Notes: The family of this 232-nucleotide sequence from Bacillus sp. MUM 116 is "T-box leader". For this family Rfam cites "Interaction between the acceptor end of tRNA and the T box stimulates antitermination in the Bacillus subtilis tyrS gene: a new role for the discriminator base" (Grundy et al., J Bacteriol, 1994). Pairs were carried over by alignment from the consensus structure, which is taken from published work. Rfam's curators write: Uncharged tRNA acts as the effector for transcription antitermination of genes in the T-box leader family. T-boxes are found upstream of many aminoacyl-tRNA synthetase genes and some amino acid biosynthetic genes usually in Gram-positive bacteria. The family's RNA type in Rfam is cis-regulatory leader.
[Rfam]
RNA sequence: AGUUAAGCAAUGACAGGGAAGAGUACGAUGCAAUUUGCUUUUAGAGAGGGAAAUCAACAGCUGAAAGAUUUCCUAAGCAAAACAUUGGAAGGUCGCCCUUGAGCUUCUUCUGCGAAAGGAUGUCCAUAUCCGAUUAGUGGAAGACGGAUGAAAUCCGUUAUCCGAUGAAGAGCCAGUCGCAUUUUGAUUGGAAAAAAGGUGGUACCGCGAAGCAACUCCAUUCGUCCUUUUA
Number, nucleotide and partner (000 for none) at each position: 001a000002g000003u000004u000005a000006a000007g104008c103009a000010a000011u000012g000013a000014c000015a099016g098017g097018g096019a000020a000021g000022a000023g000024u000025a000026c087027g086028a085029u084030g083031c000032a000033a000034u000035u000036u000037g000038c000039u000040u076041u075042u000043a000044g000045a000046g000047a000048g000049g000050g072051a071052a070053a069054u068055c067056a000057a000058c000059a000060g000061c000062u000063g000064a000065a000066a000067g055068a054069u053070u052071u051072c050073c000074u000075a041076a040077g000078c000079a000080a000081a000082a000083c030084a029085u028086u027087g026088g000089a000090a000091g000092g000093u000094c000095g000096c018097c017098c016099u015100u000101g000102a000103g008104c007105u000106u000107c143108u142109u141110c140111u139112g138113c137114g000115a000116a000117a000118g000119g000120a000121u000122g000123u000124c000125c000126a000127u000128a000129u000130c000131c000132g000133a000134u000135u000136a000137g113138u112139g111140g110141a109142a108143g107144a000145c157146g156147g155148a000149u000150g000151a000152a000153a000154u000155c147156c146157g145158u000159u000160a000161u000162c000163c000164g000165a000166u000167g000168a000169a000170g000171a000172g000173c191174c190175a189176g188177u187178c186179g185180c000181a000182u000183u000184u000185u179186g178187a177188u176189u175190g174191g173192a000193a000194a000195a000196a229197a228198g227199g226200u000201g000202g000203u000204a000205c000206c000207g225208c224209g223210a222211a221212g000213c000214a000215a000216c000217u000218c000219c000220a000221u211222u210223c209224g208225u207226c199227c198228u197229u196230u000231u000232a000